Group II catalytic intron D1-D4-7: a 137-nucleotide RNA sequence. On this family, see Bonen and Vogel, Trends Genet 2001: "The ins and outs of group II introns". Group II introns are found in rRNA, tRNA and mRNA of organelles in fungi, plants and protists, and also in mRNA in bacteria. It is one of the family's seed sequences.
RNA sequence: CCAUUUGUAUCACCAGAUGACCCUAGGAUCCUGAAUAAAGCAGCGGAUCUGACAAUGUAACGAAGUCCGGUAAAUUACUGGACGGGAACUGAAUCGUGAGAGGAUGUUCCUCCUGAUAACCACAAUCGGGUAAGUGC
Numbered sequence: 001c002c003a004u005u006u007g008u009a010u011c012a013c014c015a016g017a018u019g020a021c022c023c024u025a026g027g028a029u030c031c032u033g034a035a036u037a038a039a040g041c042a043g044c045g046g047a048u049c050u051g052a053c054a055a056u057g058u059a060a061c062g063a064a065g066u067c068c069g070g071u072a073a074a075u076u077a078c079u080g081g082a083c084g085g086g087a088a089c090u091g092a093a094u095c096g097u098g099a100g101a102g103g104a105u106g107u108u109c110c111u112c113c114u115g116a117u118a119a120c121c122a123c124a125a126u127c128g129g130g131u132a133a134g135u136g137c
Base pairs, nucleotide, nucleotide: 002019003018004017005016006015007014027049028048029047030046031045065083066082067081068080069079070078084110085109086108088107094101095100112130113129114128115127116126117125